Shown here is an 81-nucleotide RNA sequence from Bagarius yarrelli, a member of the family "mir-219 microRNA precursor family". The base pairs follow the family's consensus structure, which was predicted with RNAalifold. Lineage of the source: Eukaryota > Clupeocephala > Otomorpha > Sisoridae > Bagarius.

[Rfam]
RNA sequence: UCAGAGGCUGAUUGUCCAAACGCAAUUCUUGCAUCUGUCUGAUCACUAAGCAGGAGUUGUGGAUGGACAUCAUACCUUUGG
Numbered sequence: 001u002c003a004g005a006g007g008c009u010g011a012u013u014g015u016c017c018a019a020a021c022g023c024a025a026u027u028c029u030u031g032c033a034u035c036u037g038u039c040u041g042a043u044c045a046c047u048a049a050g051c052a053g054g055a056g057u058u059g060u061g062g063a064u065g066g067a068c069a070u071c072a073u074a075c076c077u078u079u080g081g
Stems, first nucleotide, its partner, number of pairs: 002080006009072004014068005021061011